A member of the RNA family "Bacterial RNase P class A" from Parundibacterium terreum, 339 nucleotides long. Pairs were carried over by alignment from the consensus structure, which is taken from published work.
[Rfam]
RNA sequence: GAAGCAAGCCAGACAAUCGCUGGCCUUAUCGUAAUGUUAAGGCGGGAGGAAGGUCCGGACUCCAUAGAGCAGGGUGACGGCUAACGGCCGUACGCUGAAAGCCGCAAGGUAUAAGGCGAGGAAUAGGGCCACAGAGACGAGCGUAUUUAGUUACGGUGAAACGCGGUAACCUCCACCCGGAGCAAUUUCAAAUAGGCACGCAUUGAUGCUGCUCGCGGAGCGUGCGGGUAGAAAGCUUGAGCGCUGGAGUAAUCCAGCGCCUAGAGGAAUGAUUGUCAUAGCACGAAGCAGCAAUGCCGAGUGCCGUAACAGAAUCCGGCCUACCGGCUUGCUUCAUUU
Number, nucleotide and partner (000 for none) at each position: 001g335002a334003a333004g332005c331006a330007a329008g328009c327010c326011a000012g277013a276014c275015a274016a273017u272018c271019g000020c046021u045022g000023g043024c042025c041026u040027u039028a038029u000030c000031g000032u000033a000034a000035u000036g000037u000038u028039a027040a026041g025042g024043c023044g000045g021046g020047a000048g000049g000050a000051a322052g321053g320054u000055c319056c318057g317058g316059a315060c182061u181062c180063c179064a000065u000066a000067g214068a213069g212070c211071a000072g178073g177074g176075u175076g174077a091078c090079g089080g088081c087082u000083a000084a000085c000086g000087g081088c080089c079090g078091u077092a000093c118094g117095c116096u115097g000098a000099a000100a000101g000102c000103c000104g000105c000106a000107a000108g000109g000110u000111a000112u000113a000114a000115g096116g095117c094118g093119a000120g000121g173122a172123a000124u000125a000126g171127g170128g167129c166130c165131a000132c000133a000134g000135a000136g000137a000138c000139g000140a000141g000142c155143g154144u153145a152146u000147u000148u000149a000150g000151u000152u145153a144154c143155g142156g000157u000158g000159a000160a000161a000162c000163g000164c000165g130166g129167u128168a000169a000170c127171c126172u122173c121174c076175a075176c074177c073178c072179g063180g062181a061182g060183c000184a000185a000186u234187u233188u232189c231190a000191a000192a000193u000194a000195g000196g225197c224198a223199c222200g221201c220202a000203u000204u000205g000206a000207u217208g216209c215210u000211g070212c069213u068214c067215g209216c208217g207218g000219a000220g201221c200222g199223u198224g197225c196226g000227g000228g000229u000230a000231g189232a188233a187234a186235g000236c000237u000238u000239g000240a000241g260242c259243g258244c257245u256246g255247g254248a253249g000250u000251a000252a000253u248254c247255c246256a245257g244258c243259g242260c241261c000262u000263a000264g000265a000266g000267g000268a000269a000270u000271g018272a017273u016274u015275g014276u013277c012278a000279u000280a000281g000282c000283a000284c000285g000286a000287a000288g000289c000290a000291g000292c000293a000294a000295u000296g000297c000298c000299g000300a000301g000302u000303g000304c000305c000306g000307u000308a000309a000310c000311a000312g000313a000314a000315u059316c058317c057318g056319g055320c053321c052322u051323a000324c000325c000326g010327g009328c008329u007330u006331g005332c004333u003334u002335c001336a000337u000338u000339u000
Rfam classes the family as a ribozyme.